[Rfam]
RNA sequence: UAGCACCUACAUGUCUAUCGCCAGGGAAAUGUCUAAUCUGUCUACUUAGUAGCCUGGAAACGAACGGUAGACCCUUAGAUUUUAAUUUAGUUUAAUUUUUAGUUUAGUUUAAGUUAGUUUAGAGUAGGUGUAAAGAUGCCAGUGCCGGGGCCACGCGGAGUACGAUCGAGGGUACAGCACAAGGACGCCCAUUAGGGGAAGAGCUAAAUUUUAGUUUAAGUUAAGUUUAAUUGGCUAAGUAUAGUUAAAAUUUAUAGGCUAGUAUAGAGUUAGAGC
Numbered sequence: 001u002a003g004c005a006c007c008u009a010c011a012u013g014u015c016u017a018u019c020g021c022c023a024g025g026g027a028a029a030u031g032u033c034u035a036a037u038c039u040g041u042c043u044a045c046u047u048a049g050u051a052g053c054c055u056g057g058a059a060a061c062g063a064a065c066g067g068u069a070g071a072c073c074c075u076u077a078g079a080u081u082u083u084a085a086u087u088u089a090g091u092u093u094a095a096u097u098u099u100u101a102g103u104u105u106a107g108u109u110u111a112a113g114u115u116a117g118u119u120u121a122g123a124g125u126a127g128g129u130g131u132a133a134a135g136a137u138g139c140c141a142g143u144g145c146c147g148g149g150g151c152c153a154c155g156c157g158g159a160g161u162a163c164g165a166u167c168g169a170g171g172g173u174a175c176a177g178c179a180c181a182a183g184g185a186c187g188c189c190c191a192u193u194a195g196g197g198g199a200a201g202a203g204c205u206a207a208a209u210u211u212u213a214g215u216u217u218a219a220g221u222u223a224a225g226u227u228u229a230a231u232u233g234g235c236u237a238a239g240u241a242u243a244g245u246u247a248a249a250a251u252u253u254a255u256a257g258g259c260u261a262g263u264a265u266a267g268a269g270u271u272a273g274a275g276c
Base pairs, nucleotide, nucleotide: 003131004130005129006128007127008126009125010124013072014071015070016069017068018067019066020065021057022056023055024054025053042052043051044050045049083106084105085104087102088101089100090099108123109122110121111120112119113118142180143179144178145177151171152170154168155167156164157163188198189197190196203215204214205213219236220235221234222233223232224231240256241255242254243253244252

The family of this 276-nucleotide RNA sequence from Gammacoronavirus galli is "Gammacoronavirus 3'UTR". From the family's description: In gammacoronaviruses a stem-loop located at the 3' UTR is observed, which is vital for viral replication. Even though a nearby pseudoknot structure, which has been observed in other genera of coronaviruses, is present, its functional importance has not been established yet. The sequence is in the family's curated seed alignment. The family's RNA type in Rfam is cis-regulatory element. Rfam links the family to the GO term viral RNA genome replication.